The record is a 35-nucleotide sequence from Kordia sp. SMS9, which matches "DUF805b RNA" in Rfam. Clan: DUF805 clan. The base pairs follow the family's consensus structure, which is taken from published work. The match comes from Rfam's covariance-model search (40 bits).
RNA sequence: GAGGCGUCAUCUGAAAAGCCUUAAGAGAGUAGGAA
Numbered sequence: 001g002a003g004g005c006g007u008c009a010u011c012u013g014a015a016a017a018g019c020c021u022u023a024a025g026a027g028a029g030u031a032g033g034a035a
Stems, first nucleotide, its partner, number of pairs: 002021004010034003